[Rfam]
RNA sequence: UAUUAAGGGCGCACGGUGGAUGCCUUGGCACUAGAAGCCGAUGAAGGACGUUACUAACGACGAUAUGCUUUGGGUAGCUGUAAGUAAGCGUUGAUCCAGAGAUUUCCGAAUGGGGGAACCCAACAUGAGUGAUGUCAUGUUAUUGACAUGUGAAUUCAUAGCAUGUCAGAAGGCAGACCCGGAGAACUGAAACAUCUUAGUACCCGGAGGAAAAGAAAGAAAAAUCGAUUCCCUGAGUAGCGGCGAGCGAAACGGGAAGAGCCCAAACCAACAAGCUUGCUUGUUGGGGUUGUAGGACACUCUAUACGGAGUUACAAAAGAACAUGUUAGACGAAUCAUCUGGAAAGAUGAAUCAAAGAAGGUAAUAAUCCUGUAGUCGAAAACGUAUUCUCUCUUGAGUGGAUCCUGAGUACGACGGAGCACGUGAAAUUCCGUCGGAAUCUGGGAGGACCAUCUCCUAAGGCUAAAUACUCUCUAGUGACCGAUAGUGAACCAGUACCGUGAGGGAAAGGUGAAAAGUACCCCGAAAGGGGAGUGAAAGAGAACUUGAAACCGUGUGCUUACAAG
Numbered sequence: 001u002a003u004u005a006a007g008g009g010c011g012c013a014c015g016g017u018g019g020a021u022g023c024c025u026u027g028g029c030a031c032u033a034g035a036a037g038c039c040g041a042u043g044a045a046g047g048a049c050g051u052u053a054c055u056a057a058c059g060a061c062g063a064u065a066u067g068c069u070u071u072g073g074g075u076a077g078c079u080g081u082a083a084g085u086a087a088g089c090g091u092u093g094a095u096c097c098a099g100a101g102a103u104u105u106c107c108g109a110a111u112g113g114g115g116g117a118a119c120c121c122a123a124c125a126u127g128a129g130u131g132a133u134g135u136c137a138u139g140u141u142a143u144u145g146a147c148a149u150g151u152g153a154a155u156u157c158a159u160a161g162c163a164u165g166u167c168a169g170a171a172g173g174c175a176g177a178c179c180c181g182g183a184g185a186a187c188u189g190a191a192a193c194a195u196c197u198u199a200g201u202a203c204c205c206g207g208a209g210g211a212a213a214a215g216a217a218a219g220a221a222a223a224a225u226c227g228a229u230u231c232c233c234u235g236a237g238u239a240g241c242g243g244c245g246a247g248c249g250a251a252a253c254g255g256g257a258a259g260a261g262c263c264c265a266a267a268c269c270a271a272c273a274a275g276c277u278u279g280c281u282u283g284u285u286g287g288g289g290u291u292g293u294a295g296g297a298c299a300c301u302c303u304a305u306a307c308g309g310a311g312u313u314a315c316a317a318a319a320g321a322a323c324a325u326g327u328u329a330g331a332c333g334a335a336u337c338a339u340c341u342g343g344a345a346a347g348a349u350g351a352a353u354c355a356a357a358g359a360a361g362g363u364a365a366u367a368a369u370c371c372u373g374u375a376g377u378c379g380a381a382a383a384c385g386u387a388u389u390c391u392c393u394c395u396u397g398a399g400u401g402g403a404u405c406c407u408g409a410g411u412a413c414g415a416c417g418g419a420g421c422a423c424g425u426g427a428a429a430u431u432c433c434g435u436c437g438g439a440a441u442c443u444g445g446g447a448g449g450a451c452c453a454u455c456u457c458c459u460a461a462g463g464c465u466a467a468a469u470a471c472u473c474u475c476u477a478g479u480g481a482c483c484g485a486u487a488g489u490g491a492a493c494c495a496g497u498a499c500c501g502u503g504a505g506g507g508a509a510a511g512g513u514g515a516a517a518a519g520u521a522c523c524c525c526g527a528a529a530g531g532g533g534a535g536u537g538a539a540a541g542a543g544a545a546c547u548u549g550a551a552a553c554c555g556u557g558u559g560c561u562u563a564c565a566a567g
Stems, first nucleotide, its partner, number of pairs: 007562010022547001023512002027483002029480007036472002038173002046107003049062003068101007077089003112121003122141007143170002145167007178209001179207004189196002219226002229468001230257004240248002260465004268287007294407003298401005317393001319391004324386005330378003336351005354358001360372003413437008444459005499506002522533004
This 567-nucleotide part of an RNA from Staphylococcus saccharolyticus belongs to the Rfam family "Bacterial large subunit ribosomal RNA".
It scores 2991 bits against the family's covariance model.
Taxonomically the source falls in Staphylococcus (Bacteria, Bacillota, Caryophanales, Staphylococcaceae).
The family's consensus secondary structure is taken from published work.